[Rfam]
RNA sequence: AACAGAGUAAAAGAAUACGCGUUAAGUGUUUGCCGAACGGGGAGUUGACGGCAGAACGAAAGCGGCGCGCCGCUUUUUCAGUCAAUGACUGACGCUUGAUGAAAGCAACUAAAAAUGCUUCAAAAAGCUGACAUUCAGUCUAAGACGGAAAAAGGGCACGCGUGCCCUGCGGUGUAUUCUUUGCAUCCCGCUGUU
Numbered sequence: 001a002a003c004a005g006a007g008u009a010a011a012a013g014a015a016u017a018c019g020c021g022u023u024a025a026g027u028g029u030u031u032g033c034c035g036a037a038c039g040g041g042g043a044g045u046u047g048a049c050g051g052c053a054g055a056a057c058g059a060a061a062g063c064g065g066c067g068c069g070c071c072g073c074u075u076u077u078u079c080a081g082u083c084a085a086u087g088a089c090u091g092a093c094g095c096u097u098g099a100u101g102a103a104a105g106c107a108a109c110u111a112a113a114a115a116u117g118c119u120u121c122a123a124a125a126a127g128c129u130g131a132c133a134u135u136c137a138g139u140c141u142a143a144g145a146c147g148g149a150a151a152a153a154g155g156g157c158a159c160g161c162g163u164g165c166c167c168u169g170c171g172g173u174g175u176a177u178u179c180u181u182u183g184c185a186u187c188c189c190g191c192u193g194u195u
Stems, first nucleotide, its partner, number of pairs: 001195005010182010020171003026057002029055007040188003044184001061168002
Dot-bracket structure: (((((....(((((((((((((...((.(((((((....[[[.[....)))))))))...((........................................................................................................))))).)))))))))).].]]]..)))))
A member of the RNA family "THF (Tetrahydrofolate) riboswitch aptamer" from Ruminococcus difficilis, 195 nucleotides long. Tetrahydrofolate (THF) riboswitch was first reported for Ames et al. as an RNA motif in 5' untranslated (5'-UTR)regions of folate transport and biosynthesis genes in Firmicutes genomes. On this family, see Trausch et al., Structure 2011: "The structure of a tetrahydrofolate-sensing riboswitch reveals two ligand binding sites in a single aptamer". A search with the family's covariance model found it, with a score of 74 bits. NCBI's taxonomy places the organism under Bacteria, Bacillota, Clostridia, Eubacteriales, Ruminococcus.